[Rfam]
RNA sequence: CAGCUACAUAAGCAGGGUGGGCGGUUGGCCACUUCCCGAUGGAGGGAGGUGGAAAAAAUGACGACGUAUGAAGCAUUAAGCUUAGUUGCUCAAUUUAGUUUAGUGCUAAUAGGAACGCUAACAAUGAUUAUCACGAUGGUCGUGUAUAUAAAAAAGAAAUAACCGUCCCCCCCUAGGCCAAAGGUGUGACGGUUAUUUCAAUCGCACUUAAAGGCUUGCCGCUCUUCUUGUGGCAUGUAGUUGCGCUGACCGGGUGUUUGUAACACCCGGU
Numbered sequence: 001c002a003g004c005u006a007c008a009u010a011a012g013c014a015g016g017g018u019g020g021g022c023g024g025u026u027g028g029c030c031a032c033u034u035c036c037c038g039a040u041g042g043a044g045g046g047a048g049g050u051g052g053a054a055a056a057a058a059u060g061a062c063g064a065c066g067u068a069u070g071a072a073g074c075a076u077u078a079a080g081c082u083u084a085g086u087u088g089c090u091c092a093a094u095u096u097a098g099u100u101u102a103g104u105g106c107u108a109a110u111a112g113g114a115a116c117g118c119u120a121a122c123a124a125u126g127a128u129u130a131u132c133a134c135g136a137u138g139g140u141c142g143u144g145u146a147u148a149u150a151a152a153a154a155a156g157a158a159a160u161a162a163c164c165g166u167c168c169c170c171c172c173c174u175a176g177g178c179c180a181a182a183g184g185u186g187u188g189a190c191g192g193u194u195a196u197u198u199c200a201a202u203c204g205c206a207c208u209u210a211a212a213g214g215c216u217u218g219c220c221g222c223u224c225u226u227c228u229u230g231u232g233g234c235a236u237g238u239a240g241u242u243g244c245g246c247u248g249a250c251c252g253g254g255u256g257u258u259u260g261u262a263a264c265a266c267c268c269g270g271u
Stems, first nucleotide, its partner, number of pairs: 001243003005239003009235001010217004014174004019169003023164004029052003033048005060140001062138002065135002073089003098132001185206003218234004249271010
RNA: BsrG